A member of the RNA family "mir-160 microRNA precursor family" from Brassica oleracea, 87 nucleotides long. Rfam 15.1 lists 1,502 matches to the family in 247 species. The literature on the family includes a 2002 paper in Cell by Rhoades et al., "Prediction of plant microRNA targets". The match comes from Rfam's covariance-model search (50 bits).
RNA sequence: UCAUGCUUGGCUCCUCGUACGCCACCAGCAGCCAAUUUUUCAACCAAAAUUGAUACCCACUUGUGGCAUACAGGGAGCCAGGCAUGA
Number, nucleotide and partner (000 for none) at each position: 001u087002c086003a085004u084005g083006c082007u000008u080009g079010g078011c077012u076013c075014c074015u000016c000017g071018u070019a069020c000021g067022c066023c065024a064025c000026c000027a061028g060029c000030a000031g000032c000033c000034a000035a000036u000037u000038u000039u000040u000041c000042a000043a000044c000045c000046a000047a000048a000049a000050u000051u000052g000053a000054u000055a000056c000057c000058c000059a000060c028061u027062u000063g000064u024065g023066g022067c021068a000069u019070a018071c017072a000073g000074g014075g013076a012077g011078c010079c009080a008081g000082g006083c005084a004085u003086g002087a001